Shown here is a 95-nucleotide sequence from Desulfosporosinus cupriresistens, a member of the family "NiCo (Nickel/Cobalt) riboswitch aptamer". Taxonomically the source falls in Desulfosporosinus (Bacteria, Bacillati, Bacillota, Desulfitobacteriaceae). Pairs were carried over by alignment from the consensus structure, which is taken from published work. Gene Ontology terms of the family: cobalt ion binding and metal ion homeostasis. The match comes from Rfam's covariance-model search (63 bits). Clan: NiCo_riboswitches.

RNA sequence: UCUUAACUAAUAGAGCAGGCGAUACACUUCUAUAAAGUGUGUGGGGCUGGGCUGGCCAAGAGCCGGCAGCAGGAUAAAAUACCUGUGGGACUAUA
Numbered sequence: 001u002c003u004u005a006a007c008u009a010a011u012a013g014a015g016c017a018g019g020c021g022a023u024a025c026a027c028u029u030c031u032a033u034a035a036a037g038u039g040u041g042u043g044g045g046g047c048u049g050g051g052c053u054g055g056c057c058a059a060g061a062g063c064c065g066g067c068a069g070c071a072g073g074a075u076a077a078a079a080u081a082c083c084u085g086u087g088g089g090a091c092u093a094u095a
Base pairs, nucleotide, nucleotide: 010094011093012092013091016089018048019047020046022042023041024040025039026038027037051067052066053065054064055063069086070085071084072083073082